The record is a 200-nucleotide RNA from Castor canadensis, which matches "Small nucleolar RNA SNORA74" in Rfam. Rfam describes the family as follows. U19 belongs to the H/ACA class of snoRNAs. snoRNAs bind a number of proteins (including dyskerin, Gar1p and Nop10p in the case of the H/ACA class) to form snoRNP complexes. This class are thought to guide the sites of modification of uridines to pseudouridines by forming direct base pairing interactions with substrate RNAs. The family's RNA type in Rfam is H/ACA-box small nucleolar RNA. Clan: SNORA74 clan. Pairs were carried over by alignment from the consensus structure, which was predicted with PFOLD. For this family Rfam cites "The family of box ACA small nucleolar RNAs is defined by an evolutionarily conserved secondary structure and ubiquitous sequence elements essential for RNA accumulation" (Ganot et al., Genes Dev, 1997).

RNA sequence: UCCAGCAGUAGUCAGCUGUCCGGACAGAACCAUUCCUGUGAUGGUGUUACAUUGCUGGGAGAGUAAUGUCUAGUCUUCAUCCAGUUGCCUGUGUCACUGUUCUGGUGGCCUAUGGGGCUGGGCAAGACAGAACUAUGCUUCCUUGAGAGUGUGCUGAGCAUUUGCUUUGGCUGCUUAGUUCUAGUCUGGAAGCAGACACA
Numbered sequence: 001u002c003c004a005g006c007a008g009u010a011g012u013c014a015g016c017u018g019u020c021c022g023g024a025c026a027g028a029a030c031c032a033u034u035c036c037u038g039u040g041a042u043g044g045u046g047u048u049a050c051a052u053u054g055c056u057g058g059g060a061g062a063g064u065a066a067u068g069u070c071u072a073g074u075c076u077u078c079a080u081c082c083a084g085u086u087g088c089c090u091g092u093g094u095c096a097c098u099g100u101u102c103u104g105g106u107g108g109c110c111u112a113u114g115g116g117g118c119u120g121g122g123c124a125a126g127a128c129a130g131a132a133c134u135a136u137g138c139u140u141c142c143u144u145g146a147g148a149g150u151g152u153g154c155u156g157a158g159c160a161u162u163u164g165c166u167u168u169g170g171c172u173g174c175u176u177a178g179u180u181c182u183a184g185u186c187u188g189g190a191a192g193c194a195g196a197c198a199c200a
Base pairs, nucleotide, nucleotide: 001059002058003057004056005055006054007053008052009051011050012049015045016044017043018042019041020040021038022036023035024034068133069132071130073128074127075126076125082120083119085115086114087113091110095107096106097105098104136194137193138192139191140190141189142188151181153179155177156176157175158174159173160172